[Rfam]
RNA: Glycine riboswitch aptamer
Organism: Diaphorobacter sp. HDW4B
RNA sequence: GACGCAUCGUCGGGAGAGAUCAGCCCUUGGGCUGACGCCGAAGGAGCAACCGCCCCGGAAACUCUCAGGCAAAAGGACCGACCUUGCGAG
Numbered sequence: 001g002a003c004g005c006a007u008c009g010u011c012g013g014g015a016g017a018g019a020u021c022a023g024c025c026c027u028u029g030g031g032c033u034g035a036c037g038c039c040g041a042a043g044g045a046g047c048a049a050c051c052g053c054c055c056c057g058g059a060a061a062c063u064c065u066c067a068g069g070c071a072a073a074a075g076g077a078c079c080g081a082c083c084u085u086g087c088g089a090g
Stems, first nucleotide, its partner, number of pairs: 006085001009082005020035004037070003040066002044064003050058002